[Rfam]
RNA sequence: GUGCAGUGAUGUAUUUGUCAACACAUCAUUCUGAAACAAGUAUGUGGUGACUUCUUAUGACUGAGCACA
Numbered sequence: 001g002u003g004c005a006g007u008g009a010u011g012u013a014u015u016u017g018u019c020a021a022c023a024c025a026u027c028a029u030u031c032u033g034a035a036a037c038a039a040g041u042a043u044g045u046g047g048u049g050a051c052u053u054c055u056u057a058u059g060a061c062u063g064a065g066c067a068c069a
Stems, first nucleotide, its partner, number of pairs: 001068004